[Rfam]
Molybdenum/Tungsten riboswitch aptamer (Moco RNA motif): a 120-nucleotide sequence from Desulforamulus aquiferis. A search with the family's covariance model found it, with a score of 68 bits. The family's consensus secondary structure is taken from published work.

RNA sequence: ACUACAUAUUAGCUCCGAGUUUAUAAAUCUAACACUUCGGUUAUGGUUUAUAAACCCAUAGGGUUUGUCUGGAAACGGACAUGCCUCCCAUUGUGGAAAGGAGGGUUUAGAUUAUUUGGC
Numbered sequence: 001a002c003u004a005c006a007u008a009u010u011a012g013c014u015c016c017g018a019g020u021u022u023a024u025a026a027a028u029c030u031a032a033c034a035c036u037u038c039g040g041u042u043a044u045g046g047u048u049u050a051u052a053a054a055c056c057c058a059u060a061g062g063g064u065u066u067g068u069c070u071g072g073a074a075a076c077g078g079a080c081a082u083g084c085c086u087c088c089c090a091u092u093g094u095g096g097a098a099a100g101g102a103g104g105g106u107u108u109a110g111a112u113u114a115u116u117u118g119g120c
Base pairs, nucleotide, nucleotide: 003114004113011106013103014102015101016100019055020054021053022052023051024050025049026048027047028046029045034041035040061086062085063084064083066081067080068079069078070077071076087096088095